RNA sequence: UCUUAGAUGUGGCAUAAGUACAGAAAAGCCAUUAAAGA
Numbered sequence: 001u002c003u004u005a006g007a008u009g010u011g012g013c014a015u016a017a018g019u020a021c022a023g024a025a026a027a028g029c030c031a032u033u034a035a036a037g038a
Stems, first nucleotide, its partner, number of pairs: 001038004008034001009032005
Rfam assigns this 38-nucleotide RNA from Acanthosepion pharaonis to the family "MAT2A 3'UTR stem loop D". For this family Rfam cites "New families of human regulatory RNA structures identified by comparative analysis of vertebrate genomes" (Parker et al., Genome Res, 2011). Rfam classes the family as a cis-regulatory element. A search with the family's covariance model found it, with a score of 39 bits. NCBI's taxonomy places the organism under Eukaryota, Eumetazoa, Protostomia, Cephalopoda, Acanthosepion.